U4 spliceosomal RNA: a 146-nucleotide RNA from Neogale vison.
RNA sequence: UUGAUAGAAAAGUGGCAGUAUCGUAGCCAAUGAGGUUUAUCUGAGGCGCGAUUAUUGCUAAUUGAAAAGUUGGUUAUUCAUCCUUUCUGAUGGAGGUGUAAUAUUCCAUUGUGUAUAUGAACCACAUCUUCUUUACUCAUUCAUGU
Dot-bracket structure: ...................(((((.(((.....((.....))..))))))))................................(.(((((((((........)))))))).).)........((((...............))))
The match comes from Rfam's covariance-model search (58 bits). Clan: U4 clan. From the family's description: U4 small nuclear RNA (U4 snRNA) is a component of the major U2-dependent spliceosome. For this family Rfam cites "Structure of a pre-catalytic spliceosome" (Plaschka et al., Nature, 2017). The family's consensus secondary structure is taken from published work. Rfam links the family to the GO terms U4 snRNP and spliceosomal tri-snRNP complex assembly.